[Rfam]
RNA sequence: AGGGGUGCGAUGAUUAUAAAAAAUUCCUCGUUCUGAGUGCUAUGGCUAUUUGGCAUGACAGACUCAUAUACACCCAUAGAAUAUGAGCACC
Numbered sequence: 001a002g003g004g005g006u007g008c009g010a011u012g013a014u015u016a017u018a019a020a021a022a023a024u025u026c027c028u029c030g031u032u033c034u035g036a037g038u039g040c041u042a043u044g045g046c047u048a049u050u051u052g053g054c055a056u057g058a059c060a061g062a063c064u065c066a067u068a069u070a071c072a073c074c075c076a077u078a079g080a081a082u083a084u085g086a087g088c089a090c091c
Stems, first nucleotide, its partner, number of pairs: 003091002006089002
RNA: Small nucleolar RNA snoR8a